[Rfam]
RNA: int-alpA RNA
RNA sequence: GCCGCGCCUAGCCCGACGGGGCGAAAACCGGGAGCCCCUUGUCCGGCCGGCGCGGUACCGAAUCAGGGG
Numbered sequence: 001g002c003c004g005c006g007c008c009u010a011g012c013c014c015g016a017c018g019g020g021g022c023g024a025a026a027a028c029c030g031g032g033a034g035c036c037c038c039u040u041g042u043c044c045g046g047c048c049g050g051c052g053c054g055g056u057a058c059c060g061a062a063u064c065a066g067g068g069g
Stems, first nucleotide, its partner, number of pairs: 001056008011022004028046005036069006